Shown here is an 86-nucleotide RNA from Hevea brasiliensis, a member of the family "MIR473 microRNA precursor family". The match comes from Rfam's covariance-model search (62 bits). NCBI's taxonomy places the organism under Eukaryota, Mesangiospermae, rosids, Micrandreae, Hevea. The literature on the family includes a 2005 paper in Plant Cell by Lu et al., "Novel and mechanical stress-responsive MicroRNAs in Populus trichocarpa that are absent from Arabidopsis".
[Rfam]
RNA sequence: AUUGCUCACUCUCCCUCAAGGGCUUCCAGCAGUGCCGGACAUAUGCAUGGCAAGGCUGGAGGCCACUGGGGGAGAGUGGACAAUAU
Dot-bracket structure: .....((((((((((.(.((((((((((............................)))))))).)).))))))))))).......
Numbered sequence: 001a002u003u004g005c006u007c008a009c010u011c012u013c014c015c016u017c018a019a020g021g022g023c024u025u026c027c028a029g030c031a032g033u034g035c036c037g038g039a040c041a042u043a044u045g046c047a048u049g050g051c052a053a054g055g056c057u058g059g060a061g062g063c064c065a066c067u068g069g070g071g072g073a074g075a076g077u078g079g080a081c082a083a084u085a086u
Stems, first nucleotide, its partner, number of pairs: 006079010017069001019067002021064008